A member of the RNA family "FMN riboswitch aptamer (RFN element)" from Aedoeadaptatus ivorii, 115 nucleotides long.
RNA sequence: GAAGUUCUUCAGGGCGAGGCGCAAUUCCUCACCGGUGGUCACAGUCCACGACUCGAAAGAUUGAAUCGGUGUAAUUCCGAUACCGACGGUAUAGUCCGGAUGGGAGAAGAAUCAU
Numbered sequence: 001g002a003a004g005u006u007c008u009u010c011a012g013g014g015c016g017a018g019g020c021g022c023a024a025u026u027c028c029u030c031a032c033c034g035g036u037g038g039u040c041a042c043a044g045u046c047c048a049c050g051a052c053u054c055g056a057a058a059g060a061u062u063g064a065a066u067c068g069g070u071g072u073a074a075u076u077c078c079g080a081u082a083c084c085g086a087c088g089g090u091a092u093a094g095u096c097c098g099g100a101u102g103g104g105a106g107a108a109g110a111a112u113c114a115u
Base pairs, nucleotide, nucleotide: 004112005111006110007109008108009107010106017029018028019027031095032094033085034084035049036048037047038046044083045082053060054059065081066080067079068078069077087098088097089096
The family's consensus secondary structure is taken from published work.
The organism belongs to Aedoeadaptatus, within Bacteria.